RNA sequence: UGACAACUACUCCGGAAUCUCUGCAUAGCUGUGAUGAUUUGCUUGAACCCUUUGAAGCUGGUGACCCCCUUCCUAUGUGUAGUC
Numbered sequence: 001u002g003a004c005a006a007c008u009a010c011u012c013c014g015g016a017a018u019c020u021c022u023g024c025a026u027a028g029c030u031g032u033g034a035u036g037a038u039u040u041g042c043u044u045g046a047a048c049c050c051u052u053u054g055a056a057g058c059u060g061g062u063g064a065c066c067c068c069c070u071u072c073c074u075a076u077g078u079g080u081a082g083u084c
Base pairs, nucleotide, nucleotide: 002084003083004082006080